[Rfam]
RNA sequence: UUAAAAUUGAAUGUCAUACCGUAGACAGUAGGUGUGGUUAUCCACUUAAUUUCCUGCCGAGGUAAGCGAUAGAUACAGUGAUCUGUGUUUGUAUGCCCUCAUGUCUACAUGGGGGCUUUUUAUAUGCUUCU
Numbered sequence: 001u002u003a004a005a006a007u008u009g010a011a012u013g014u015c016a017u018a019c020c021g022u023a024g025a026c027a028g029u030a031g032g033u034g035u036g037g038u039u040a041u042c043c044a045c046u047u048a049a050u051u052u053c054c055u056g057c058c059g060a061g062g063u064a065a066g067c068g069a070u071a072g073a074u075a076c077a078g079u080g081a082u083c084u085g086u087g088u089u090u091g092u093a094u095g096c097c098c099u100c101a102u103g104u105c106u107a108c109a110u111g112g113g114g115g116c117u118u119u120u121u122a123u124a125u126g127c128u129u130c131u
Stems, first nucleotide, its partner, number of pairs: 028057005034045003095116009